[Rfam]
RNA sequence: UUCAAUCUUCGGGGCAGGGUGAAAUUCCCGACCGACGGUGAUGAGCUUCACUGAAGUUCUAAGUCCGUGACCCGUGAGGUAAUAACCGAGCGGCUGACCCGGUGUGAAUCCGGGACCGACAGUAAAGUCUGGAUGGGAGAAGAUGUGA
Numbered sequence: 001u002u003c004a005a006u007c008u009u010c011g012g013g014g015c016a017g018g019g020u021g022a023a024a025u026u027c028c029c030g031a032c033c034g035a036c037g038g039u040g041a042u043g044a045g046c047u048u049c050a051c052u053g054a055a056g057u058u059c060u061a062a063g064u065c066c067g068u069g070a071c072c073c074g075u076g077a078g079g080u081a082a083u084a085a086c087c088g089a090g091c092g093g094c095u096g097a098c099c100c101g102g103u104g105u106g107a108a109u110c111c112g113g114g115a116c117c118g119a120c121a122g123u124a125a126a127g128u129c130u131g132g133a134u135g136g137g138a139g140a141a142g143a144u145g146u147g148a
Stems, first nucleotide, its partner, number of pairs: 005144006017029003031128002033118002035068004063116002072093002098114005120131003

Record summary: Rfam assigns this 148-nucleotide sequence from Virgibacillus sp. MSP4-1 to the family "FMN riboswitch aptamer (RFN element)".